[Rfam]
RNA sequence: UCAGCGGCUAGGUUAGCUACCGAAAAGGAGUGUUCACCUACUCCCUGCCGUUGGUUUUCUUUGAGGU
Numbered sequence: 001u002c003a004g005c006g007g008c009u010a011g012g013u014u015a016g017c018u019a020c021c022g023a024a025a026a027g028g029a030g031u032g033u034u035c036a037c038c039u040a041c042u043c044c045c046u047g048c049c050g051u052u053g054g055u056u057u058u059c060u061u062u063g064a065g066g067u
Stems, first nucleotide, its partner, number of pairs: 001054008011021003027044005037065001039063001

The family of this 67-nucleotide RNA from Aporhodopirellula sallentina is "int-alpA RNA". Rfam 15.1 lists 577 matches to the family in 491 species. Lineage of the source: Bacteria > Planctomycetota > Pirellulales > Pirellulaceae > Aporhodopirellula sallentina. Acidobacteria (1 example), Planctomycetes (1 example), Proteobacteria. By type it is a small RNA.